[Rfam]
RNA sequence: AUGAGGAGGUGCUGGGGACCACUCUGUGUUCACUCUGUGCUCGAGUAGUGAACACAGCUGGUGGUAUCUCAGUUUCUUCUCACCA
Numbered sequence: 001a002u003g004a005g006g007a008g009g010u011g012c013u014g015g016g017g018a019c020c021a022c023u024c025u026g027u028g029u030u031c032a033c034u035c036u037g038u039g040c041u042c043g044a045g046u047a048g049u050g051a052a053c054a055c056a057g058c059u060g061g062u063g064g065u066a067u068c069u070c071a072g073u074u075u076c077u078u079c080u081c082a083c084c085a
Stems, first nucleotide, its partner, number of pairs: 008076002011073002015070001016068002018065002021062003024057003028053001030051002
Overview
Rfam assigns this 85-nucleotide RNA sequence from Zophobas morio to the family "mir-317 microRNA precursor family". It scores 59 bits against the family's covariance model. The organism belongs to Zophobas, within Eukaryota. On this family, see Stark et al., Genome Res 2007: "Systematic discovery and characterization of fly microRNAs using 12 Drosophila genomes". Pairs were carried over by alignment from the consensus structure, which was predicted with RNAalifold.